A member of the RNA family "Bacterial RNase P class A" from Campylobacter corcagiensis, 315 nucleotides long. It scores 251 bits against the family's covariance model. About the family: Ribonuclease P (RNase P) is a ubiquitous endoribonuclease, found in archaea, bacteria and eukarya as well as chloroplasts and mitochondria. The organism belongs to Campylobacter, within Bacteria. It is annotated as a ribozyme.
RNA sequence: CAAGUAUGGUGAGUGACUGCGUGAAAACGAGGAAAGUCCGAGCUACACUAAGACGGGGCUUCAUCUAACGGAUGACUAGGGCGACCUAAGGGAAAGUGCAACAGAAAGCAAACUACCGCUAAGCGGAAAAGGUGAAAGGGUAGGGUAAGAGCCUACCAGCAUUUAUGGCAACAUAAGUGGCUUGUAAACCCAGCCUGUAGCAAGAAGGGACGGUUUUGUCUUAGAUUAAAACCCUUCGCUUGAGCUAAUUUGUGAAAUUUAGCCUAGAUAAAUAGUCACUUUUAACAGAACUCGGCUUAUAGCUAUACUUGGGGU
Numbered sequence: 001c002a003a004g005u006a007u008g009g010u011g012a013g014u015g016a017c018u019g020c021g022u023g024a025a026a027a028c029g030a031g032g033a034a035a036g037u038c039c040g041a042g043c044u045a046c047a048c049u050a051a052g053a054c055g056g057g058g059c060u061u062c063a064u065c066u067a068a069c070g071g072a073u074g075a076c077u078a079g080g081g082c083g084a085c086c087u088a089a090g091g092g093a094a095a096g097u098g099c100a101a102c103a104g105a106a107a108g109c110a111a112a113c114u115a116c117c118g119c120u121a122a123g124c125g126g127a128a129a130a131g132g133u134g135a136a137a138g139g140g141u142a143g144g145g146u147a148a149g150a151g152c153c154u155a156c157c158a159g160c161a162u163u164u165a166u167g168g169c170a171a172c173a174u175a176a177g178u179g180g181c182u183u184g185u186a187a188a189c190c191c192a193g194c195c196u197g198u199a200g201c202a203a204g205a206a207g208g209g210a211c212g213g214u215u216u217u218g219u220c221u222u223a224g225a226u227u228a229a230a231a232c233c234c235u236u237c238g239c240u241u242g243a244g245c246u247a248a249u250u251u252g253u254g255a256a257a258u259u260u261a262g263c264c265u266a267g268a269u270a271a272a273u274a275g276u277c278a279c280u281u282u283u284a285a286c287a288g289a290a291c292u293c294g295g296c297u298u299a300u301a302g303c304u305a306u307a308c309u310u311g312g313g314g315u
Stems, first nucleotide, its partner, number of pairs: 001311010011300001012280007020029003034298003038295005043200004056196005061075005076090001077088004091191002096189002098185003113131002116126004139157006159181001160179008204237004212233006244263005250257002